[Rfam]
RNA sequence: CCUGUCCCGCCCGGCGAGACCUCCCCCCGACAGCUCUGGCGCACUUCCCCGGCGCCAGAGGGUCGGUGGGGGAUCUGGUCGGACGGCGGAAGGACC
Numbered sequence: 001c002c003u004g005u006c007c008c009g010c011c012c013g014g015c016g017a018g019a020c021c022u023c024c025c026c027c028c029g030a031c032a033g034c035u036c037u038g039g040c041g042c043a044c045u046u047c048c049c050c051g052g053c054g055c056c057a058g059a060g061g062g063u064c065g066g067u068g069g070g071g072g073a074u075c076u077g078g079u080c081g082g083a084c085g086g087c088g089g090a091a092g093g094a095c096c
Base pairs, nucleotide, nucleotide: 011082012081013080014079015078018075019074021072022071023070024069025068027066028065029064030063031062034060035059036058037057038056039055040054041053042052